A member of the RNA family "Small nucleolar RNA U109" from Chaetura pelagica, 144 nucleotides long. Rfam links the family to the GO terms RNA processing and nucleolus. The family has 26 seed sequences and 1,405 matches in Rfam 15.1. The family's consensus secondary structure was predicted with WAR.
[Rfam]
RNA sequence: CUGCAUGUUAAAAAAAAAAAUAAUUCUGCUCCUCAUUCCCGGAGGAGCACGAAUCACUACACAACAUGCUAGAGAAAACAAGGAGUUUUCAGGGCUGCCAGUCUUGCAGUGAAGGCUGAGUGGUAGUAUAGGUCUCCAACAUCC
Dot-bracket structure: ..((((((................(.((((((...........)))))).)............))))))............((((........((..((((((((......))))))).)..)).........)))).......
Numbered sequence: 001c002u003g004c005a006u007g008u009u010a011a012a013a014a015a016a017a018a019a020a021u022a023a024u025u026c027u028g029c030u031c032c033u034c035a036u037u038c039c040c041g042g043a044g045g046a047g048c049a050c051g052a053a054u055c056a057c058u059a060c061a062c063a064a065c066a067u068g069c070u071a072g073a074g075a076a077a078a079c080a081a082g083g084a085g086u087u088u089u090c091a092g093g094g095c096u097g098c099c100a101g102u103c104u105u106g107c108a109g110u111g112a113a114g115g116c117u118g119a120g121u122g123g124u125a126g127u128a129u130a131g132g133u134c135u136c137c138a139a140c141a142u143c144c
Stems, first nucleotide, its partner, number of pairs: 003069006025051001027049006082137004094124002098120001099118007